[Rfam]
RNA sequence: GGGGUUCGAAAUAGACUUACCUCCACGUGGUGUACCCUGGACAACGUAUAUUCAUACGGCGAAAAAGGUCUA
Dot-bracket structure: (((((.(...........(((.......)))).)))))......(((((....)))))..............
Numbered sequence: 001g002g003g004g005u006u007c008g009a010a011a012u013a014g015a016c017u018u019a020c021c022u023c024c025a026c027g028u029g030g031u032g033u034a035c036c037c038u039g040g041a042c043a044a045c046g047u048a049u050a051u052u053c054a055u056a057c058g059g060c061g062a063a064a065a066a067g068g069u070c071u072a
Stems, first nucleotide, its partner, number of pairs: 001038005007032001019031003045058005
The record is a 72-nucleotide RNA from Rodentolepis nana, which matches "HDV ribozyme from F. prausnitzii" in Rfam.
A reference for the family is Webb et al. (2009), "Widespread occurrence of self-cleaving ribozymes", Science.